[Rfam]
RNA sequence: UUGCGGGCCUUCCAGCGUGUUUGGGUCUAGGGUGACUCAGUGCAUUCCUGCAGUGCUUGCUAGAAUGUCCUGAAAUGGCUUGAGGCUUUGCCCUGUCCUUCCUCGGAGCACGGUCAGAGACAUUUCAGACAGCU
Numbered sequence: 001u002u003g004c005g006g007g008c009c010u011u012c013c014a015g016c017g018u019g020u021u022u023g024g025g026u027c028u029a030g031g032g033u034g035a036c037u038c039a040g041u042g043c044a045u046u047c048c049u050g051c052a053g054u055g056c057u058u059g060c061u062a063g064a065a066u067g068u069c070c071u072g073a074a075a076u077g078g079c080u081u082g083a084g085g086c087u088u089u090g091c092c093c094u095g096u097c098c099u100u101c102c103u104c105g106g107a108g109c110a111c112g113g114u115c116a117g118a119g120a121c122a123u124u125u126c127a128g129a130c131a132g133c134u
Stems, first nucleotide, its partner, number of pairs: 003060006018044003023038005071127005086113002089110003093106003
Description: Shown here is a 134-nucleotide RNA from Neogale vison, a member of the family "Small nucleolar RNA SNORA9". Rfam 15.1 lists 1,202 matches to the family in 518 species. The source organism's lineage runs through Eukaryota, Sarcopterygii, Theria, Carnivora and Neogale. Its family is annotated with RNA processing and nucleolus in the Gene Ontology. The family's consensus secondary structure was predicted with PFOLD. Rfam's curators write: ACA9 is a member of the H/ACA class of snoRNA that guide the sites of modification of uridines to pseudouridines.